Shown here is an 89-nucleotide sequence from Streptococcus mutans, a member of the family "THF (Tetrahydrofolate) riboswitch aptamer". On this family, see Trausch and Batey, Chem Biol 2014: "A disconnect between high-affinity binding and efficient regulation by antifolates and purines in the tetrahydrofolate riboswitch". Taxonomically the source falls in Streptococcus mutans (Bacteria, Bacillati, Bacillota, Streptococcus). Tetrahydrofolate (THF) riboswitch was first reported for Ames et al. as an RNA motif in 5' untranslated (5'-UTR)regions of folate transport and biosynthesis genes in Firmicutes genomes. Gene Ontology term of the family: tetrahydrofolate metabolic process.
[Rfam]
Nucleotides: 089
Stems, first nucleotide, its partner, number of pairs: 001089004009078009018068003024053002027051007037084005057065002
Number, partner (000 for none) and nucleotide at each position: 001089a002088c003087a004086g005000a006000g007000u008000a009078g010077a011076u012075g013074a014073u015072u016071c017070g018068c019067g020066u021000u022000a023000a024053g025052u026000g027051u028050g029049u030048g031047u032046g033045a034000a035000u036000g037084g038083g039082a040081u041080g042000u043000c044000g045033u046032c047031a048030c049029a050028c051027a052025a053024c054000g055000a056000a057065g058064c059000c060000a061000u062000a063000a064058g065057c066020g067019c068018g069000g070017u071016g072015a073014a074013u075012c076011a077010u078009u079000g080041c081040a082039u083038c084037c085000g086004c087003u088002g089001u